[Rfam]
RNA: Poribacteria-1 RNA
RNA sequence: GUCGCCGGGGGAAGGAGGGAAAUGGCACCGGCGACGGGGCGGAAGUAAAGGCAUUCAUCAGCAGUGGUAUCCGUCAGACUAAGCCUCCACUGCACAUCUAACCGACUAAGGAGC
Dot-bracket structure: ((((((((...................))))))))..[[[[[[.................(((((((..]]]]]]...........))))))).....................